[Rfam]
RNA sequence: GUUGGCUACGGAGAUAUGCGUCCAGUAGGUAUAUUUGGUAAAAUUGUUGGGUCAAUGUGUGCUAUUGCCGGUGUACUUACUAUUGCUUUACCUGUGCCUGUUAUCGUGUCGAAU
Numbered sequence: 001g002u003u004g005g006c007u008a009c010g011g012a013g014a015u016a017u018g019c020g021u022c023c024a025g026u027a028g029g030u031a032u033a034u035u036u037g038g039u040a041a042a043a044u045u046g047u048u049g050g051g052u053c054a055a056u057g058u059g060u061g062c063u064a065u066u067g068c069c070g071g072u073g074u075a076c077u078u079a080c081u082a083u084u085g086c087u088u089u090a091c092c093u094g095u096g097c098c099u100g101u102u103a104u105c106g107u108g109u110c111g112a113a114u
Stems, first nucleotide, its partner, number of pairs: 001114002005110001007108005013102004018097004037077004049063002

A member of the RNA family "Potassium channel RNA editing signal" from Rotaria magnacalcarata, 114 nucleotides long.
About the family: This family represents a group of sequences related to the human potassium channel Kv1.1 hairpin element which directs the efficient modification of an adenosine to inosine by an adenosine deaminase acting on RNA (ADAR).
It scores 96 bits against the family's covariance model.
Pairs were carried over by alignment from the consensus structure, which is taken from published work.
The literature on the family includes a 2004 paper in Nat Struct Mol Biol by Bhalla et al., "Control of human potassium channel inactivation by editing of a small mRNA hairpin".